[Rfam]
RNA sequence: CUUUAUAGCUAGGGGUGCCUUUGGCUGAGAGAUAACAUUUCGUUAUUAACCCUUAAAACCUGAUCUGGAUAAUACCAGCGUAGGAAAGCCUGUAGAAAGUUUU
Numbered sequence: 001c002u003u004u005a006u007a008g009c010u011a012g013g014g015g016u017g018c019c020u021u022u023g024g025c026u027g028a029g030a031g032a033u034a035a036c037a038u039u040u041c042g043u044u045a046u047u048a049a050c051c052c053u054u055a056a057a058a059c060c061u062g063a064u065c066u067g068g069a070u071a072a073u074a075c076c077a078g079c080g081u082a083g084g085a086a087a088g089c090c091u092g093u094a095g096a097a098a099g100u101u102u103u
Base pairs, nucleotide, nucleotide: 008089009088010087011053012052013051014050017025018024019023032046033045034044035043036042059084060083061082062081065078066077067076068075

A member of the RNA family "TPP riboswitch aptamer (THI element)" from Clostridium perfringens, 103 nucleotides long. It scores 76 bits against the family's covariance model.